[Rfam]
RNA: Small nucleolar RNA SNORD94
Organism: Merops nubicus
RNA sequence: AUGGCGGUGAUGAUUGGCGCAGGGGUACGGACCUCAGCUGCGUGAUGGGAGCUGAGUGCGGGCUGGUCGUGCCGGUGCAGCUGGCGUGGGGCUGGCUCACUGGCAGCAGCCCUGCACGAGACUUCGCCAGAGACUGAGCCAU
Number, nucleotide and partner (000 for none) at each position: 001a142002u141003g140004g139005c138006g000007g000008u000009g000010a000011u000012g000013a000014u000015u000016g000017g000018c000019g000020c000021a000022g000023g000024g000025g000026u000027a000028c000029g000030g000031a000032c000033c000034u000035c000036a000037g000038c000039u000040g000041c000042g000043u000044g000045a000046u000047g000048g000049g000050a000051g000052c000053u000054g000055a000056g000057u000058g000059c000060g000061g000062g000063c000064u000065g000066g000067u000068c000069g000070u000071g000072c000073c000074g000075g000076u000077g000078c000079a000080g000081c000082u000083g000084g000085c000086g000087u000088g000089g000090g000091g000092c000093u000094g000095g000096c000097u000098c000099a000100c000101u000102g000103g000104c000105a000106g000107c000108a000109g000110c000111c000112c000113u000114g000115c000116a000117c000118g000119a000120g000121a000122c000123u000124u000125c000126g000127c000128c000129a000130g000131a000132g000133a000134c000135u000136g000137a000138g005139c004140c003141a002142u001